This 87-nucleotide RNA sequence from Enterococcus rivorum belongs to the Rfam family "Enterococcus sRNA 84". On this family, see Innocenti et al., RNA 2015: "Whole-genome mapping of 5' RNA ends in bacteria by tagged sequencing: a comprehensive view in Enterococcus faecalis". NCBI's taxonomy places the organism under Bacteria, Bacillati, Bacillota, Enterococcaceae, Enterococcus. Pairs were carried over by alignment from the consensus structure, which was predicted with RNAfold. The family has 5 seed sequences and 30 matches in Rfam 15.1. The match comes from Rfam's covariance-model search (100 bits).

[Rfam]
RNA sequence: UAACAACAACAACCUUUUUAUUUUUCAUUUUACUCUUUUGAGUAAAUACUCCUUUUCCAUCGGCUAUUUUAGCCGAUGGUUUUUUUA
Numbered sequence: 001u002a003a004c005a006a007c008a009a010c011a012a013c014c015u016u017u018u019u020a021u022u023u024u025u026c027a028u029u030u031u032a033c034u035c036u037u038u039u040g041a042g043u044a045a046a047u048a049c050u051c052c053u054u055u056u057c058c059a060u061c062g063g064c065u066a067u068u069u070u071a072g073c074c075g076a077u078g079g080u081u082u083u084u085u086u087a
Stems, first nucleotide, its partner, number of pairs: 029046007057079009